Shown here is an 80-nucleotide RNA sequence from Octopus sinensis, a member of the family "mir-980 microRNA precursor family". It scores 49 bits against the family's covariance model. The source organism's lineage runs through Eukaryota, Mollusca, Cephalopoda, Coleoidea and Octopus.
RNA sequence: AGUUUCUCGUUGCCGUUCAUCAGACAGUUUUUGCUAGUUUUUUCUAGCAAAAACUGUCUGAUGAACGGCAACGAGAAACU
Numbered sequence: 001a002g003u004u005u006c007u008c009g010u011u012g013c014c015g016u017u018c019a020u021c022a023g024a025c026a027g028u029u030u031u032u033g034c035u036a037g038u039u040u041u042u043u044c045u046a047g048c049a050a051a052a053a054c055u056g057u058c059u060g061a062u063g064a065a066c067g068g069c070a071a072c073g074a075g076a077a078a079c080u
Stems, first nucleotide, its partner, number of pairs: 004077012017064004023058002030051005